[Rfam]
Nucleotides: 132
Base pairs, nucleotide, nucleotide: 020035021034024031042081043080044079047072048071049070050069051068056063057062089105091104092103093102094101109125111123
Number, partner (000 for none) and nucleotide at each position: 001000u002000a003000a004000c005000u006000g007000g008000u009000g010000a011000a012000a013000g014000u015000c016000c017000a018000g019000u020035c021034u022000g023000a024031g025000u026000a027000a028000g029000u030000a031024c032000c033000a034021a035020g036000a037000a038000g039000c040000u041000g042081a043080u044079a045000a046000u047072c048071a049070a050069c051068u052000g053000g054000u055000g056063g057062a058000g059000a060000a061000a062057u063056c064000a065000u066000g067000a068051g069050g070049u071048u072047g073000a074000a075000a076000c077000c078000c079044u080043g081042u082000g083000a084000c085000a086000a087000a088000a089105u090000a091104a092103c093102u094101u095000u096000u097000u098000a099000c100000g101094g102093a103092g104091u105089g106000c107000g108000a109125a110000c111123a112000a113000c114000u115000u116000a117000a118000c119000a120000a121000u122000u123111u124000u125109u126000a127000a128000c129000a130000u131000c132000a

Shown here is a 132-nucleotide RNA from Alteribacter keqinensis, a member of the family "Group II catalytic intron D1-D4-4".
The source organism's lineage runs through Bacteria, Bacillota, Bacilli, Caryophanales and Alteribacter.
Group II introns are found in rRNA, tRNA and mRNA of organelles in fungi, plants and protists, and also in mRNA in bacteria.
It scores 50 bits against the family's covariance model.